SAM riboswitch aptamer (S box leader): a 98-nucleotide sequence from Andreesenia angusta.
RNA sequence: GCCUUAUCAAGAGAGGUGGAGGGACAGGCCCGAUGAAGCCCAGCAACCGUUAAAAGCGGUGCUAAUUCCUACGGAUAGCUAUGUCCGGAAGAUGAGGG
Numbered sequence: 001g002c003c004u005u006a007u008c009a010a011g012a013g014a015g016g017u018g019g020a021g022g023g024a025c026a027g028g029c030c031c032g033a034u035g036a037a038g039c040c041c042a043g044c045a046a047c048c049g050u051u052a053a054a055a056g057c058g059g060u061g062c063u064a065a066u067u068c069c070u071a072c073g074g075a076u077a078g079c080u081a082u083g084u085c086c087g088g089a090a091g092a093u094g095a096g097g098g
Base pairs, nucleotide, nucleotide: 002097003096004095005094006093007092008091013041015040016039017038021031022030023029026070027069028068042063043062044061045060047059048058050054067090072087073086074085075084076083077082

The match comes from Rfam's covariance-model search (83 bits).